[Rfam]
tRNA: a 73-nucleotide RNA from Streptomyces rimosus. The organism belongs to Streptomyces, within Bacteria.

RNA sequence: GCCCCCGUUGUGUAGCGGCCUAGCACGCCGCCCUCUCAAGGCGGUAGCGCCGGUUCGAAUCCGGUCGGGGGUA
Numbered sequence: 001g002c003c004c005c006c007g008u009u010g011u012g013u014a015g016c017g018g019c020c021u022a023g024c025a026c027g028c029c030g031c032c033c034u035c036u037c038a039a040g041g042c043g044g045u046a047g048c049g050c051c052g053g054u055u056c057g058a059a060u061c062c063g064g065u066c067g068g069g070g071g072u073a
Base pairs, nucleotide, nucleotide: 001072002071003070004069005068006067007066010026011025012024013023028044029043030042031041032040049065050064051063052062053061